[Rfam]
The family of this 104-nucleotide RNA sequence from Geotoga petraea is "THF (Tetrahydrofolate) riboswitch aptamer". Tetrahydrofolate (THF) riboswitch was first reported for Ames et al. as an RNA motif in 5' untranslated (5'-UTR)regions of folate transport and biosynthesis genes in Firmicutes genomes. On this family, see Huang et al., Proc Natl Acad Sci U S A 2011: "Long-range pseudoknot interactions dictate the regulatory response in the tetrahydrofolate riboswitch". Pairs were carried over by alignment from the consensus structure, which is taken from published work.
RNA sequence: GGCAGAGUAGAUGUCAAGCGUUAAUAGUGCUCAAGGAUGGGACGUUGCCUUGGGACGAAACUCCUUUUUUUAAAAGGAUGCGGUUUGACAUUGCGUCCGCUGUC
Numbered sequence: 001g002g003c004a005g006a007g008u009a010g011a012u013g014u015c016a017a018g019c020g021u022u023a024a025u026a027g028u029g030c031u032c033a034a035g036g037a038u039g040g041g042a043c044g045u046u047g048c049c050u051u052g053g054g055a056c057g058a059a060a061c062u063c064c065u066u067u068u069u070u071u072a073a074a075a076g077g078a079u080g081c082g083g084u085u086u087g088a089c090a091u092u093g094c095g096u097c098c099g100c101u102g103u104c
Stems, first nucleotide, its partner, number of pairs: 001104005010092009019082003027056002030054007040098005060079001062077002